A member of the RNA family "MIR5070 microRNA precursor family" from Brachypodium distachyon, 116 nucleotides long. Its family is annotated with RISC complex and miRNA-mediated post-transcriptional gene silencing in the Gene Ontology.

RNA sequence: CACGGUACCCUUUGAUUCUCCUUAGUUCAACCAAAUGAACUAAAAUUCUAAGAUGACAUAAUUUUUUAGAAAAUUAGUUCAUUUGUUUAAACUAAGGAUGGUCAAAGGGUACCCUG
Numbered sequence: 001c002a003c004g005g006u007a008c009c010c011u012u013u014g015a016u017u018c019u020c021c022u023u024a025g026u027u028c029a030a031c032c033a034a035a036u037g038a039a040c041u042a043a044a045a046u047u048c049u050a051a052g053a054u055g056a057c058a059u060a061a062u063u064u065u066u067u068a069g070a071a072a073a074u075u076a077g078u079u080c081a082u083u084u085g086u087u088u089a090a091a092c093u094a095a096g097g098a099u100g101g102u103c104a105a106a107g108g109g110u111a112c113c114c115u116g
Stems, first nucleotide, its partner, number of pairs: 002115001004113014019098009029088002032085012
Overview
The organism belongs to Brachypodium, within Eukaryota. The family is grouped with related families in Rfam's "MIR2863 microRNA precursor clan".